[Rfam]
RNA sequence: GCGCCGUCUGAAGAAUCGCCAUCGCAGCUCACGCACAGGGAGUCGCCUCUCUUAUUCUGGCUGUGGGGAAAGUCCCCGGAGAUGCAGAGCAUGUCCUCGUCCAUUACGGAAAGCGGCCGCUUCUAAGCACGGCGGAACGAGGACGAGGACGGUGAGAAUGUCAAUGCUUGGUUCUUUACUGCUAGAAUCCUAGCUCCUUCUCGACCACUCUGCCGUUCAAUUGAUUUGCUGGGUAUCCUUUAUUGCCCCGAGGUGCGAAGACAUGAGCACCAUGGAUUGCUUGGAUAUCCGGUGGGUCGUUGUACGAUUUGUUGCUCAUAGACAAAGUUAUGCGAUUGCGGACCUUUCGAGGAACGUCAACAGAAUGGGGCUCACUCUCAUUCGGCG
Numbered sequence: 001g002c003g004c005c006g007u008c009u010g011a012a013g014a015a016u017c018g019c020c021a022u023c024g025c026a027g028c029u030c031a032c033g034c035a036c037a038g039g040g041a042g043u044c045g046c047c048u049c050u051c052u053u054a055u056u057c058u059g060g061c062u063g064u065g066g067g068g069a070a071a072g073u074c075c076c077c078g079g080a081g082a083u084g085c086a087g088a089g090c091a092u093g094u095c096c097u098c099g100u101c102c103a104u105u106a107c108g109g110a111a112a113g114c115g116g117c118c119g120c121u122u123c124u125a126a127g128c129a130c131g132g133c134g135g136a137a138c139g140a141g142g143a144c145g146a147g148g149a150c151g152g153u154g155a156g157a158a159u160g161u162c163a164a165u166g167c168u169u170g171g172u173u174c175u176u177u178a179c180u181g182c183u184a185g186a187a188u189c190c191u192a193g194c195u196c197c198u199u200c201u202c203g204a205c206c207a208c209u210c211u212g213c214c215g216u217u218c219a220a221u222u223g224a225u226u227u228g229c230u231g232g233g234u235a236u237c238c239u240u241u242a243u244u245g246c247c248c249c250g251a252g253g254u255g256c257g258a259a260g261a262c263a264u265g266a267g268c269a270c271c272a273u274g275g276a277u278u279g280c281u282u283g284g285a286u287a288u289c290c291g292g293u294g295g296g297u298c299g300u301u302g303u304a305c306g307a308u309u310u311g312u313u314g315c316u317c318a319u320a321g322a323c324a325a326a327g328u329u330a331u332g333c334g335a336u337u338g339c340g341g342a343c344c345u346u347u348c349g350a351g352g353a354a355c356g357u358c359a360a361c362a363g364a365a366u367g368g369g370g371c372u373c374a375c376u377c378u379c380a381u382u383c384g385g386c387g
Base pairs, nucleotide, nucleotide: 002387003386004385005384006383009380010379011378014337015336016335017334018333019332022066023065024064025063026062027061028060038051039050040049041048042047071372072371074370075369076368077367208233209232210231212229213228235308236307237306241304242303243302245300246299253297254296256294283290284289339356340355343352344351345350
Dot-bracket structure: .(((((..(((..((((((..(((((((.........(((((....)))))........)))))))....[[.[[[[..................................................................................................................................(((.((..............)).))).(((...(((.((......((.(..........................((....))...).)).)).))).))).......................)))))).((..(((....)))..))..........]]]]]].....)))..)))))